[Rfam]
RNA sequence: AUGCAAACGUCUGGGUUUCGUGACAGGCGAGCCGUUCUUUACGACUUGGUUCGUUGUCAACGAAACCUGCACGAUCUGCAA
Number, nucleotide and partner (000 for none) at each position: 001a000002u080003g079004c078005a077006a000007a000008c000009g000010u000011c000012u069013g068014g067015g066016u065017u064018u063019c062020g061021u000022g000023a000024c000025a000026g000027g000028c000029g052030a051031g050032c049033c048034g000035u000036u000037c000038u000039u000040u000041a000042c000043g000044a000045c000046u000047u000048g033049g032050u031051u030052c029053g000054u000055u000056g000057u000058c000059a000060a000061c020062g019063a018064a017065a016066c015067c014068u013069g012070c000071a000072c000073g000074a000075u000076c000077u005078g004079c003080a002081a000
The family of this 81-nucleotide RNA sequence from Apis mellifera is "mir-981 microRNA precursor family". It is one of the family's seed sequences. NCBI's taxonomy places the organism under Eukaryota, Protostomia, Insecta, Pterygota, Apis. The family's consensus secondary structure was predicted with RNAalifold. For this family Rfam cites "Direct sequencing and expression analysis of a large number of miRNAs in Aedes aegypti and a multi-species survey of novel mosquito miRNAs" (Li et al., BMC Genomics, 2009).